[Rfam]
RNA sequence: GUCUACACCGAGGGGUGCCCUGCCAAAGGGCUGAGAUACUGCUGGCCAACGCAGCGCAGUGACCCUUUGAACCUGAUCCGGAUCAUGCCGGCGAAGGGACGGGUCCGACACCUAUC
Number, nucleotide and partner (000 for none) at each position: 001g000002u000003c000004u000005a000006c000007a000008c102009c101010g100011a066012g065013g064014g063015g000016u000017g031018c030019c029020c028021u027022g000023c000024c000025a000026a000027a021028g020029g019030g018031c017032u000033g000034a000035g000036a000037u000038a060039c059040u058041g057042c056043u000044g000045g000046c000047c000048a000049a000050c000051g000052c000053a000054g000055c000056g042057c041058a040059g039060u038061g000062a000063c014064c013065c012066u011067u000068u000069g000070a000071a000072c097073c096074u095075g000076a000077u000078c091079c090080g089081g088082a000083u000084c000085a000086u000087g000088c081089c080090g079091g078092c000093g000094a000095a074096g073097g072098g000099a000100c010101g009102g008103g000104u000105c000106c000107g000108a000109c000110a000111c000112c000113u000114a000115u000116c000
Rfam assigns this 116-nucleotide RNA sequence from Neorhizobium sp. S3-V5DH to the family "TPP riboswitch aptamer (THI element)". The family's consensus secondary structure is taken from published work. It scores 75 bits against the family's covariance model. The source organism's lineage runs through Bacteria, Pseudomonadati, Pseudomonadota, Hyphomicrobiales and Neorhizobium.